Annotation:
Alphaproteobacterial ar14: a 120-nucleotide RNA from Paracoccus aminovorans. Smr14C2 was renamed NfeR1 (Nodule Formation Efficiency RNA) highly expressed in salt stress and during the symbiotic interaction on legume roots.

RNA sequence: CGGAAUACGAUGGUCCUCUCCUCCUCCCUGGGACCGUCGGAUCGCGGUAAUGGCGUCCUCCUCCCUGCCAUUGCCGCACCCCAUACGCGGCCCCUCCUCCUCCCUGGGCCAGCGUUGCGC
Numbered sequence: 001c002g003g004a005a006u007a008c009g010a011u012g013g014u015c016c017u018c019u020c021c022u023c024c025u026c027c028c029u030g031g032g033a034c035c036g037u038c039g040g041a042u043c044g045c046g047g048u049a050a051u052g053g054c055g056u057c058c059u060c061c062u063c064c065c066u067g068c069c070a071u072u073g074c075c076g077c078a079c080c081c082c083a084u085a086c087g088c089g090g091c092c093c094c095u096c097c098u099c100c101u102c103c104c105u106g107g108g109c110c111a112g113c114g115u116u117g118c119g120c
Base pairs, nucleotide, nucleotide: 008039009038011036012035013034014033015032016031017030045076046075047074048073049072050071051070052069053068054067085115086114087113088112089110090109091108092107093106